[Rfam]
RNA sequence: AUAUCACUCGAUGAACUGCCAAAGACAGUAGGUGCUGAAAAGCGUAAGGUUAAAACGCCUACCGAGGAGAGAAUCGUAUGAAGUAUUGAUUAUGUACAUCGAUCCCGGUCUCUGAGCAGACCGGGAUUUUUUCAUCGUUUGA
Numbered sequence: 001a002u003a004u005c006a007c008u009c010g011a012u013g014a015a016c017u018g019c020c021a022a023a024g025a026c027a028g029u030a031g032g033u034g035c036u037g038a039a040a041a042g043c044g045u046a047a048g049g050u051u052a053a054a055a056c057g058c059c060u061a062c063c064g065a066g067g068a069g070a071g072a073a074u075c076g077u078a079u080g081a082a083g084u085a086u087u088g089a090u091u092a093u094g095u096a097c098a099u100c101g102a103u104c105c106c107g108g109u110c111u112c113u114g115a116g117c118a119g120a121c122c123g124g125g126a127u128u129u130u131u132u133c134a135u136c137g138u139u140u141g142a
Stems, first nucleotide, its partner, number of pairs: 028062006034043003102127010
Overview: Shown here is a 142-nucleotide sequence from Clostridium sp. CAG:632, a member of the family "Ribosomal protein L10 leader". Pairs were carried over by alignment from the consensus structure, which was predicted with CMfinder. The family's RNA type in Rfam is cis-regulatory leader. Gene Ontology term of the family: regulation of gene expression. It scores 68 bits against the family's covariance model. The source organism's lineage runs through Bacteria, Bacillati, Bacillota, Clostridiaceae and Clostridium.